[Rfam]
RNA sequence: CUGCAUGUCAGACCCCUGCCUCCCUCAGUCACCAUAGGGAGUGUGGGUGACAGAGAGACAUGCCAGAGUCAAACAGCAUGGAGCUCACAGGGCCAGCGGUCUCACAGAGCGGACUGACUGGUAGUAUCGCGCUCCAACACUU
Numbered sequence: 001c002u003g004c005a006u007g008u009c010a011g012a013c014c015c016c017u018g019c020c021u022c023c024c025u026c027a028g029u030c031a032c033c034a035u036a037g038g039g040a041g042u043g044u045g046g047g048u049g050a051c052a053g054a055g056a057g058a059c060a061u062g063c064c065a066g067a068g069u070c071a072a073a074c075a076g077c078a079u080g081g082a083g084c085u086c087a088c089a090g091g092g093c094c095a096g097c098g099g100u101c102u103c104a105c106a107g108a109g110c111g112g113a114c115u116g117a118c119u120g121g122u123a124g125u126a127u128c129g130c131g132c133u134c135c136a137a138c139a140c141u142u
Base pairs, nucleotide, nucleotide: 003063004062005061006060007059008058017045018044019043080135081134082133083132092122093121096118097116098115099114100113101112102111
A member of the RNA family "Small nucleolar RNA U109" from Megalops atlanticus, 142 nucleotides long. The organism belongs to Megalops, within Eukaryota. The base pairs follow the family's consensus structure, which was predicted with WAR.